[Rfam]
Rfam assigns this 46-nucleotide RNA sequence from Malania oleifera to the family "Plastid-rpl16 group II-D1 intron". Rfam's curators put it in the seed alignment. Its family is annotated with Group II intron splicing in the Gene Ontology. The organism belongs to Malania, within Eukaryota. About the family: Plastid-rpl16 is a non-coding RNA (ncRNA) recognised in plastids. It was recognised in and intronic region of a ribosome rpl16 gene.
RNA sequence: AAGAGCCUCGAGUCAAUAAAGACUGAGAAGAUUGACUCAAGAUAAA
Number, nucleotide and partner (000 for none) at each position: 001a000002a000003g000004a000005g000006c000007c041008u040009c000010g038011a037012g036013u035014c034015a033016a032017u031018a000019a000020a000021g000022a000023c000024u000025g000026a000027g000028a000029a000030g000031a017032u016033u015034g014035a013036c012037u011038c010039a000040a008041g007042a000043u000044a000045a000046a000